This 66-nucleotide sequence from Mus musculus belongs to the Rfam family "U7 small nuclear RNA". Pairs were carried over by alignment from the consensus structure, which was predicted with PFOLD. The match comes from Rfam's covariance-model search (36 bits). On this family, see Spycher et al., Nucleic Acids Res 1994: "3' end processing of mouse histone pre-mRNA: evidence for additional base-pairing between U7 snRNA and pre-mRNA".
[Rfam]
RNA sequence: AGCUGUUACAACUCUUUUAGAAUUAUUUUUUCUAGCAGAUCCUCUGUCUUUGGUCAGAGAACCCAA
Numbered sequence: 001a002g003c004u005g006u007u008a009c010a011a012c013u014c015u016u017u018u019a020g021a022a023u024u025a026u027u028u029u030u031u032c033u034a035g036c037a038g039a040u041c042c043u044c045u046g047u048c049u050u051u052g053g054u055c056a057g058a059g060a061a062c063c064c065a066a
Stems, first nucleotide, its partner, number of pairs: 038063001040061001042059005048053001